The family of this 77-nucleotide RNA sequence from Goravirus gentianae is "Tymovirus/Pomovirus/Furovirus tRNA-like 3' UTR element".
On this family, see Matsuda and Dreher, Virology 2004: "The tRNA-like structure of Turnip yellow mosaic virus RNA is a 3'-translational enhancer".
Rfam's curators write: This family represents a tRNA-like structure found in the 3' UTR of Tymoviruses, Pomoviruses and Furovirus.
Rfam links the family to the GO term regulation of translation.
The family has 29 seed sequences and 38 matches in Rfam 15.1.
Lineage of the source: Viruses > Riboviria > Kitrinoviricota > Martellivirales > Goravirus gentianae.
RNA sequence: UCUGAUCCCUAGUGGGAUCGCUAACAAGACAAGUUAGUUGGAGGGGUGCGACUCCCCCCUUGCCCAGGCCGGGGCCC
Numbered sequence: 001u002c003u004g005a006u007c008c009c010u011a012g013u014g015g016g017a018u019c020g021c022u023a024a025c026a027a028g029a030c031a032a033g034u035u036a037g038u039u040g041g042a043g044g045g046g047u048g049c050g051a052c053u054c055c056c057c058c059c060u061u062g063c064c065c066a067g068g069c070c071g072g073g074g075c076c077c
Stems, first nucleotide, its partner, number of pairs: 005018005012049001020038006043057004058072002067076003